[Rfam]
RNA sequence: AAUCUGUUUCAGGGCGAGGUGCAAUUCCUCACUGGCGGUGUUCGGCAGUUGCCGUGAGUCCGCGAGCCUGAUGUGAAGUAUCACAGAAGGCAGAAUGGGUGUAACUCCCAUACCAACGGUAUAGUCCGGAUGAAAGAAACGAAAU
Numbered sequence: 001a002a003u004c005u006g007u008u009u010c011a012g013g014g015c016g017a018g019g020u021g022c023a024a025u026u027c028c029u030c031a032c033u034g035g036c037g038g039u040g041u042u043c044g045g046c047a048g049u050u051g052c053c054g055u056g057a058g059u060c061c062g063c064g065a066g067c068c069u070g071a072u073g074u075g076a077a078g079u080a081u082c083a084c085a086g087a088a089g090g091c092a093g094a095a096u097g098g099g100u101g102u103a104a105c106u107c108c109c110a111u112a113c114c115a116a117c118g119g120u121a122u123a124g125u126c127c128g129g130a131u132g133a134a135a136g137a138a139a140c141g142a143a144a145u
Stems, first nucleotide, its partner, number of pairs: 003143001005141006017029003031125002033115002035063004058113002066091003095111005117128003